[Rfam]
RNA sequence: UUCAUUAAAUACUUGACUACAGGGCCUUUCACAAGACCCGGUGUACAAUUUUUGGAGACCCUGUCCUAUCUCUCUGGGGCAGGGUG
Numbered sequence: 001u002u003c004a005u006u007a008a009a010u011a012c013u014u015g016a017c018u019a020c021a022g023g024g025c026c027u028u029u030c031a032c033a034a035g036a037c038c039c040g041g042u043g044u045a046c047a048a049u050u051u052u053u054g055g056a057g058a059c060c061c062u063g064u065c066c067u068a069u070c071u072c073u074c075u076g077g078g079g080c081a082g083g084g085u086g
Base pairs, nucleotide, nucleotide: 022039023038024037026035027034028033058085059084060083061082062081063080064079065078066077067076068075

Rfam assigns this 86-nucleotide sequence from Caenorhabditis nigoni to the family "SmY spliceosomal RNA". Taxonomically the source falls in Caenorhabditis (Eukaryota, Opisthokonta, Metazoa, Rhabditida). Rfam 15.1 lists 408 matches to the family in 67 species. The literature on the family includes a 2007 paper in RNA by MacMorris et al., "A novel family of C. elegans snRNPs contains proteins associated with trans-splicing".